[Rfam]
RNA sequence: GGUGUGAUGAUGAUGUGCGCAGGGGUACGGACCUCAGCCGCUGAUGGGGGCUGAGCGCCGCUGCACAUGCUCUGUUUGGACGACAUGUGGUCGACCAGUGGACGAGUGGCGGCGUGAAACAGACGCCUGUCUGAACACC
Numbered sequence: 001g002g003u004g005u006g007a008u009g010a011u012g013a014u015g016u017g018c019g020c021a022g023g024g025g026u027a028c029g030g031a032c033c034u035c036a037g038c039c040g041c042u043g044a045u046g047g048g049g050g051c052u053g054a055g056c057g058c059c060g061c062u063g064c065a066c067a068u069g070c071u072c073u074g075u076u077u078g079g080a081c082g083a084c085a086u087g088u089g090g091u092c093g094a095c096c097a098g099u100g101g102a103c104g105a106g107u108g109g110c111g112g113c114g115u116g117a118a119a120c121a122g123a124c125g126c127c128u129g130u131c132u133g134a135a136c137a138c139c
Stems, first nucleotide, its partner, number of pairs: 001139005

Small nucleolar RNA SNORD94: a 139-nucleotide sequence from Sphaeramia orbicularis.
The base pairs follow the family's consensus structure, which was predicted with RNAalifold.
It is annotated as a C/D-box small nucleolar RNA.
For this family Rfam cites "Identification of 13 novel human modification guide RNAs" (Vitali et al., Nucleic Acids Res, 2003).
Lineage of the source: Eukaryota > Actinopterygii > Actinopteri > Apogonidae > Sphaeramia.